RNA sequence: UUCCCCUGCCUCUGAUGAAGCCUGUGUUGGUAGGGACAUCUGAGAAAACUGAUGAAUGCCAACGGCUCUGAUGGCAG
Numbered sequence: 001u002u003c004c005c006c007u008g009c010c011u012c013u014g015a016u017g018a019a020g021c022c023u024g025u026g027u028u029g030g031u032a033g034g035g036a037c038a039u040c041u042g043a044g045a046a047a048a049c050u051g052a053u054g055a056a057u058g059c060c061a062a063c064g065g066c067u068c069u070g071a072u073g074g075c076a077g
Stems, first nucleotide, its partner, number of pairs: 001077002004074002
RNA: Small nucleolar RNA SNORD74
Organism: Tupaia belangeri